The record is a 119-nucleotide sequence from Halonatronomonas betaini, which matches "FMN riboswitch aptamer (RFN element)" in Rfam.
It scores 120 bits against the family's covariance model.
RNA sequence: AUAAAUCUUCAGGGCAGGGUGUAAUUCCUGACCGGUGGUAAAGUCCACGAGCUUUUUUAAAAAGCAGAUCUGGUGUAAUUCCAGAACCGACGGUAUAGUCCGGAUAGGAGAAGGUUAUU
Numbered sequence: 001a002u003a004a005a006u007c008u009u010c011a012g013g014g015c016a017g018g019g020u021g022u023a024a025u026u027c028c029u030g031a032c033c034g035g036u037g038g039u040a041a042a043g044u045c046c047a048c049g050a051g052c053u054u055u056u057u058u059a060a061a062a063a064g065c066a067g068a069u070c071u072g073g074u075g076u077a078a079u080u081c082c083a084g085a086a087c088c089g090a091c092g093g094u095a096u097a098g099u100c101c102g103g104a105u106a107g108g109a110g111a112a113g114g115u116u117a118u119u
Base pairs, nucleotide, nucleotide: 004116005115006114007113008112009111010110017029018028019027031099032098033089034088035048036047037046038045043087044086051065052064053063069085070084071083072082073081091102092101093100
Dot-bracket structure: ...(((((((......(((.......))).[[((((((....[[))))..(((.........)))...(((((.......)))))]])).(((....]]))).......)))))))...